The record is a 57-nucleotide RNA sequence from Methylobacterium sp. GXS13, which matches "nhaA-I RNA" in Rfam. Rfam's curators write: Acidobacteria, Alphaproteobacteria, Betaproteobacteria and Gammaproteobacteria, Verrucomicrobia, cand. division NC10. The match comes from Rfam's covariance-model search (49 bits). It is annotated as a riboswitch.
[Rfam]
RNA sequence: GGGUGCGCGGUCCGUCUAGUCGGGCCGGCAGGUCGAGCGCUGGUCGGGCCGCCAGCG
Numbered sequence: 001g002g003g004u005g006c007g008c009g010g011u012c013c014g015u016c017u018a019g020u021c022g023g024g025c026c027g028g029c030a031g032g033u034c035g036a037g038c039g040c041u042g043g044u045c046g047g048g049c050c051g052c053c054a055g056c057g
Stems, first nucleotide, its partner, number of pairs: 005029002008027007038057007